Small nucleolar RNA SNORD45: an 83-nucleotide RNA from Illadopsis cleaveri.
By type it is a C/D-box small nucleolar RNA.
It scores 61 bits against the family's covariance model.
Its family is annotated with RNA processing and nucleolus in the Gene Ontology.

RNA sequence: GGUCUAUGAUGAGUUUUGGCAUGUAUUAUCUGACUAUAAAUUUGAAGAUUACCAUUUUAGCUCUGUAAUUACUCUGAGACCUG
Numbered sequence: 001g002g003u004c005u006a007u008g009a010u011g012a013g014u015u016u017u018g019g020c021a022u023g024u025a026u027u028a029u030c031u032g033a034c035u036a037u038a039a040a041u042u043u044g045a046a047g048a049u050u051a052c053c054a055u056u057u058u059a060g061c062u063c064u065g066u067a068a069u070u071a072c073u074c075u076g077a078g079a080c081c082u083g
Base pairs, nucleotide, nucleotide: 001081002080003079004078